[Rfam]
RNA: Histone 3' UTR stem-loop
RNA sequence: CCAAAGGCUCUUUUAAGAGCCAUUCACAUUGCAAUAAGACAAUUCU
Numbered sequence: 001c002c003a004a005a006g007g008c009u010c011u012u013u014u015a016a017g018a019g020c021c022a023u024u025c026a027c028a029u030u031g032c033a034a035u036a037a038g039a040c041a042a043u044u045c046u
Base pairs, nucleotide, nucleotide: 006021007020008019009018010017011016